[Rfam]
RNA: Glycine riboswitch aptamer
RNA sequence: UCAAGUCCCGUGGGAGAGACCGACUUGGAUCGCUAUCCCGAGUCGGCGCCGAAGGCGCAACACUGCCCGGAAUCGCUCAGGCAAACGGACCGCGGGGAUGAU
Numbered sequence: 001u002c003a004a005g006u007c008c009c010g011u012g013g014g015a016g017a018g019a020c021c022g023a024c025u026u027g028g029a030u031c032g033c034u035a036u037c038c039c040g041a042g043u044c045g046g047c048g049c050c051g052a053a054g055g056c057g058c059a060a061c062a063c064u065g066c067c068c069g070g071a072a073u074c075g076c077u078c079a080g081g082c083a084a085a086c087g088g089a090c091c092g093c094g095g096g097g098a099u100g101a102u
Stems, first nucleotide, its partner, number of pairs: 006097008020046009048082003051078002055076003061069001